[Rfam]
Nucleotides: 131
Stems, first nucleotide, its partner, number of pairs: 005127006017029003031111002033101002035065004060099002068077003081097005103114003
Number, partner (000 for none) and nucleotide at each position: 001000a002000g003000a004000a005127u006126g007125u008124u009123u010122c011000a012000g013000g014000g015000g016000g017029a018028g019027g020000u021000g022000u023000a024000a025000g026000u027019c028018c029017u030000c031111a032110c033101c034100g035065g036064c037063g038062g039000u040000a041000a042000u043000g044000a045000g046000c047000g048000c049000a050000a051000g052000a053000g054000c055000u056000a057000c058000a059000a060099g061098u062038c063037c064036g065035c066000g067000a068077g069076c070075c071000a072000a073000c074000a075070g076069g077068c078000a079000g080000a081097a082096u083095g084094g085093g086000u087000u088000a089000g090000a091000u092000u093085c094084c095083c096082a097081u098061a099060c100034c101033g102000a103114c104113g105112g106000u107000a108000u109000a110032g111031u112105c113104c114103g115000g116000a117000u118000g119000a120000a121000a122010g123009a124008a125007a126006c127005a128000g129000g130000u131000u

Rfam assigns this 131-nucleotide sequence from Aminipila butyrica to the family "FMN riboswitch aptamer (RFN element)".
Gene Ontology term of the family: FMN binding.
Rfam's curators write: The RFN element is a highly conserved domain that is found frequently in the 5'-untranslated regions of prokaryotic mRNAs that encode for flavin mononucleotide (FMN) biosynthesis and transport proteins. This element is a metabolite-dependent riboswitch that directly binds FMN in the absence of proteins. In Bacillus subtilis, the riboswitch most likely controls gene expression by causing premature transcription termination within the 5' untranslated region of the ribDEAHT operon and precluding access to the ribosome-binding site of ypaA mRNA.The FMN riboswitch structure, reported in present an FMN-bound six-stem junction, adopts a butterfly-like scaffold, stapled together by opposingly directed but nearly identically folded peripheral domains.
Lineage of the source: Bacteria > Bacillati > Bacillota > Peptostreptococcales > Aminipila.